Shown here is a 95-nucleotide sequence, a member of the family "SAM-I/IV (S-adenosyl methionine) riboswitch aptamer".
Rfam's curators put it in the seed alignment.
Gene Ontology terms of the family: S-adenosylmethionine metabolic process and regulation of gene expression.
The literature on the family includes a 2014 paper in PNAS by Trausch et al., "Structural basis for diversity in the SAM clan of riboswitches".
RNA sequence: GCCAUGCAUCCAGAGUAGGAGCUAGCUCCUCGCCAACCUGCAACUCCAAAGCAAGGUGGCCAAAUGAUGCGGCAAUCGCAACCAAUUGGAGAACA
Number, nucleotide and partner (000 for none) at each position: 001g000002c000003c000004a000005u000006g070007c069008a068009u067010c066011c000012a000013g000014a000015g031016u000017a030018g029019g028020a027021g026022c000023u000024a000025g000026c021027u020028c019029c018030u017031c015032g060033c059034c058035a000036a000037c056038c055039u054040g052041c051042a000043a000044c091045u090046c089047c088048a087049a000050a000051g041052c040053a000054a039055g038056g037057u000058g034059g033060c032061c000062a000063a000064a000065u000066g010067a009068u008069g007070c006071g000072g079073c078074a000075a000076u000077c000078g073079c072080a000081a000082c000083c000084a000085a000086u000087u048088g047089g046090a045091g044092a000093a000094c000095a000